RNA: Small nucleolar RNA SNORA40
Organism: Cricetulus griseus
RNA sequence: AGCACUUGAAUAUGUUUUUUGUUCAGCUGGUGGACAAAGGCAGAUUAGACAGACAUAAAAAUAAAUCCUCUUUUGCAACCCAGAACUUAUUGUUCAGUAUGAGUUUUGAUAUAUACAAGAAGGAAUUUU
Numbered sequence: 001a002g003c004a005c006u007u008g009a010a011u012a013u014g015u016u017u018u019u020u021g022u023u024c025a026g027c028u029g030g031u032g033g034a035c036a037a038a039g040g041c042a043g044a045u046u047a048g049a050c051a052g053a054c055a056u057a058a059a060a061a062u063a064a065a066u067c068c069u070c071u072u073u074u075g076c077a078a079c080c081c082a083g084a085a086c087u088u089a090u091u092g093u094u095c096a097g098u099a100u101g102a103g104u105u106u107u108g109a110u111a112u113a114u115a116c117a118a119g120a121a122g123g124a125a126u127u128u129u
Base pairs, nucleotide, nucleotide: 002056006052007051008050011047014041015040016039018038019037020036021035022034027032065126066125068123069122071120072119073118074117075116081108082107083106084105085104086103087102088101089100090099